[Rfam]
RNA: Small nucleolar RNA SNORA41
Organism: Rhinolophus ferrumequinum
RNA sequence: UUUCACAGAUACUGAUCGGCAGCUGUUCUUAUGGUGGCAUUUGUGGCAUUCCUCUGUGGGAGAGAAACUUACAUGGUUAAACACUUCUUUCUUAGCAAGAUAGAGUAGGCAUGUGUGACAAACACAA
Numbered sequence: 001u002u003u004c005a006c007a008g009a010u011a012c013u014g015a016u017c018g019g020c021a022g023c024u025g026u027u028c029u030u031a032u033g034g035u036g037g038c039a040u041u042u043g044u045g046g047c048a049u050u051c052c053u054c055u056g057u058g059g060g061a062g063a064g065a066a067a068c069u070u071a072c073a074u075g076g077u078u079a080a081a082c083a084c085u086u087c088u089u090u091c092u093u094a095g096c097a098a099g100a101u102a103g104a105g106u107a108g109g110c111a112u113g114u115g116u117g118a119c120a121a122a123c124a125c126a127a
Base pairs, nucleotide, nucleotide: 003059004058005057006056017046019044020043021042022041024039025038071116072115073114074113075112084109085108086107087105088104089103090102